[Rfam]
Description
The family of this 100-nucleotide RNA sequence from Vibrio ishigakensis is "Purine riboswitch aptamer".

RNA sequence: CGCCAAUUUACAUAUCGAAGCUGUAUAUGUGAGGUGAUUUGGACCUCUCGUUUCUACCUCGGAGCCUAACUCUGAGACUACAGUUUUAUCCAGUCUACAC
Numbered sequence: 001c002g003c004c005a006a007u008u009u010a011c012a013u014a015u016c017g018a019a020g021c022u023g024u025a026u027a028u029g030u031g032a033g034g035u036g037a038u039u040u041g042g043a044c045c046u047c048u049c050g051u052u053u054c055u056a057c058c059u060c061g062g063a064g065c066c067u068a069a070c071u072c073u074g075a076g077a078c079u080a081c082a083g084u085u086u087u088a089u090c091c092a093g094u095c096u097a098c099a100c
Stems, first nucleotide, its partner, number of pairs: 018086008029049001031047005058076007

Background
Lineage of the source: Bacteria > Pseudomonadati > Vibrionales > Vibrionaceae > Vibrio. The family's consensus secondary structure is taken from published work.